[Rfam]
RNA: FMN riboswitch aptamer (RFN element)
Organism: Sulfobacillus thermosulfidooxidans
RNA sequence: UGAAACCUUCGGGGCGUGGUGAGAGGUUAUUCCUCAAUUCCCGACCGGCGGUGAUCUCACUGAUGUGAGUAAGCCCGCGAGCCGCAAGGCAGGAGUCCGGUGUGAGUCCGGCGCCGACAGUACAGUCUGGAUGGGAGAAGGUUAAG
Number, nucleotide and partner (000 for none) at each position: 001u000002g000003a000004a143005a142006c141007c140008u139009u138010c137011g000012g000013g000014g000015c000016g000017u000018g041019g040020u000021g000022a000023g000024a000025g000026g000027u000028u000029a000030u000031u000032c000033c000034u000035c000036a000037a000038u000039u000040c019041c018042c000043g000044a126045c125046c116047g115048g078049c077050g076051g075052u000053g000054a000055u000056c000057u000058c000059a000060c000061u000062g000063a000064u000065g000066u000067g000068a000069g000070u000071a000072a000073g114074c113075c051076c050077g049078c048079g000080a000081g090082c089083c088084g000085c000086a000087a000088g083089g082090c081091a000092g000093g000094a000095g112096u000097c111098c110099g109100g108101u000102g000103u000104g000105a000106g000107u000108c100109c099110g098111g097112c095113g074114c073115c047116g046117a000118c129119a128120g127121u000122a000123c000124a000125g045126u044127c120128u119129g118130g000131a000132u000133g000134g000135g000136a000137g010138a009139a008140g007141g006142u005143u004144a000145a000146g000